The family of this 173-nucleotide RNA from Pseudarthrobacter enclensis is "c-di-AMP riboswitch aptamer (ydaO/yuaA leader)". Rfam's curators write: This family represents a conserved RNA structure found upstream of the ydaO and yuaA genes in Bacillus subtilis and related genes in other bacteria.
RNA sequence: GGGAUUCAAUCGCUUUCCAACUGGCAGGGACGGGGGAACCAAGUUUCCACGGCUUCGAUGAAGCCUUGGGGUUAAGUCGAUAGCGCCUUCCGUCCCUGACGACGCGCGCUACCGGCCGGGCAUCUCCAGCCCGAACCCGACAGCUCACCCCGCAGGCAUGGGAGAGGCGAUCA
Numbered sequence: 001g002g003g004a005u006u007c008a009a010u011c012g013c014u015u016u017c018c019a020a021c022u023g024g025c026a027g028g029g030a031c032g033g034g035g036g037a038a039c040c041a042a043g044u045u046u047c048c049a050c051g052g053c054u055u056c057g058a059u060g061a062a063g064c065c066u067u068g069g070g071g072u073u074a075a076g077u078c079g080a081u082a083g084c085g086c087c088u089u090c091c092g093u094c095c096c097u098g099a100c101g102a103c104g105c106g107c108g109c110u111a112c113c114g115g116c117c118g119g120g121c122a123u124c125u126c127c128a129g130c131c132c133g134a135a136c137c138c139g140a141c142a143g144c145u146c147a148c149c150c151c152g153c154a155g156g157c158a159u160g161g162g163a164g165a166g167g168c169g170a171u172c173a
Stems, first nucleotide, its partner, number of pairs: 012157003016029003031152005040068004069138003077115003118132004
Annotation
The match comes from Rfam's covariance-model search (56 bits).